[Rfam]
RNA sequence: UUAUCAAAGGAAUAGCUGCCGAAGACAGCAGGUGCCGUAAGGCAUAAGGUUCAAAACGCCUGCCGAGGAAGAGUUUUUUCUUAAAUCUGAGAUUCACAGCCGCAAGGUAUGAGGAUUGAAGGAAUACGAGAUUGACUUAAACCUCUUUGUCUUUGAUAAAGAGGUUUUCUUAAUUUUGA
Numbered sequence: 001u002u003a004u005c006a007a008a009g010g011a012a013u014a015g016c017u018g019c020c021g022a023a024g025a026c027a028g029c030a031g032g033u034g035c036c037g038u039a040a041g042g043c044a045u046a047a048g049g050u051u052c053a054a055a056a057c058g059c060c061u062g063c064c065g066a067g068g069a070a071g072a073g074u075u076u077u078u079u080c081u082u083a084a085a086u087c088u089g090a091g092a093u094u095c096a097c098a099g100c101c102g103c104a105a106g107g108u109a110u111g112a113g114g115a116u117u118g119a120a121g122g123a124a125u126a127c128g129a130g131a132u133u134g135a136c137u138u139a140a141a142c143c144u145c146u147u148u149g150u151c152u153u154u155g156a157u158a159a160a161g162a163g164g165u166u167u168u169c170u171u172a173a174u175u176u177u178g179a
Stems, first nucleotide, its partner, number of pairs: 028063006034043003142164010

The family of this 179-nucleotide sequence from Firmicutes bacterium CAG:424 is "Ribosomal protein L10 leader". On this family, see Iben and Draper, Biochemistry 2008: "Specific interactions of the L10(L12)4 ribosomal protein complex with mRNA, rRNA, and L11". The match comes from Rfam's covariance-model search (73 bits). This family is a putative r-protein leader autoregulatory structure found in B. subtilis and other low-GC Gram-positive bacteria.